[Rfam]
RNA sequence: AGAAAACCUCCGGAGAUCAAAUCGUGAAGCAAACGCAGAUUGUAAAAAAGCGGGAUGACGUAUCGACCGUCACCCCGC
Numbered sequence: 001a002g003a004a005a006a007c008c009u010c011c012g013g014a015g016a017u018c019a020a021a022u023c024g025u026g027a028a029g030c031a032a033a034c035g036c037a038g039a040u041u042g043u044a045a046a047a048a049a050g051c052g053g054g055a056u057g058a059c060g061u062a063u064c065g066a067c068c069g070u071c072a073c074c075c076c077g078c
Base pairs, nucleotide, nucleotide: 005041008038009037022032024030025029050078051077052076053075056072057071058070059069060068
Source information
The family of this 78-nucleotide sequence from Pseudomonas taeanensis is "Pseudomonas sRNA P31". By type it is a small RNA. Pairs were carried over by alignment from the consensus structure, which was predicted with CMfinder.